[Rfam]
Shown here is an 84-nucleotide sequence from Lentivirus humimdef1, a member of the family "HIV gag stem loop 3 (GSL3)". This family consists of several HIV gag stem loop 3 (GSL3) sequences. GSL3 is known to direct specific packaging of HIV-1 genomic RNA. Deletion of GSL3 leads to decreases in both viral RNA packaging and dimerisation. NCBI's taxonomy places the organism under Viruses, Revtraviricetes, Orthoretrovirinae, Lentivirus, Lentivirus humimdef1.

RNA sequence: GGCCAGGGGGAAAGAAAAAAUAUAGAUUAAAGCUUCUAGUAUGGCCAAGCAGGGGACUAGGCCGAUUCGCAGUUAAUCUUGCCU
Numbered sequence: 001g002g003c004c005a006g007g008g009g010g011a012a013a014g015a016a017a018a019a020a021u022a023u024a025g026a027u028u029a030a031a032g033c034u035u036c037u038a039g040u041a042u043g044g045c046c047a048a049g050c051a052g053g054g055g056a057c058u059a060g061g062c063c064g065a066u067u068c069g070c071a072g073u074u075a076a077u078c079u080u081g082c083c084u
Stems, first nucleotide, its partner, number of pairs: 001084002004081005
The family's consensus secondary structure was predicted with PFOLD. For this family Rfam cites "RNA interactions in the 5' region of the HIV-1 genome" (Damgaard et al., J Mol Biol, 2004).